[Rfam]
RNA sequence: AGGUCAUUUCAAGGAGGGCUGAUGGGACCAAAUCCAGGAGCUCUUAACGCUGUGACCAAAGAUUGAAUUCUCCAUAGGAUGUAAUAGUCACUUGAUAGUGCUAUGUUUUCCUGAUGGAGAUACAGAA
Numbered sequence: 001a002g003g004u005c006a007u008u009u010c011a012a013g014g015a016g017g018g019c020u021g022a023u024g025g026g027a028c029c030a031a032a033u034c035c036a037g038g039a040g041c042u043c044u045u046a047a048c049g050c051u052g053u054g055a056c057c058a059a060a061g062a063u064u065g066a067a068u069u070c071u072c073c074a075u076a077g078g079a080u081g082u083a084a085u086a087g088u089c090a091c092u093u094g095a096u097a098g099u100g101c102u103a104u105g106u107u108u109u110c111c112u113g114a115u116g117g118a119g120a121u122a123c124a125g126a127a
Stems, first nucleotide, its partner, number of pairs: 002057006014045007023037001026035001069120005076112004084104004089100004